[Rfam]
RNA: ABC transporter regulator
Organism: Serratia fonticola
RNA sequence: GAACACCAUCGUGAUGUGGUUGUGUUGAUCAUAAUGAUAUGAUAAUCGGACAAUAAUUUUAUUGUCCUUUUUUUUAA
Numbered sequence: 001g002a003a004c005a006c007c008a009u010c011g012u013g014a015u016g017u018g019g020u021u022g023u024g025u026u027g028a029u030c031a032u033a034a035u036g037a038u039a040u041g042a043u044a045a046u047c048g049g050a051c052a053a054u055a056a057u058u059u060u061a062u063u064g065u066c067c068u069u070u071u072u073u074u075u076a077a
Base pairs, nucleotide, nucleotide: 026044028043029042030041031040032039048067049066050065051064052063053062054061055060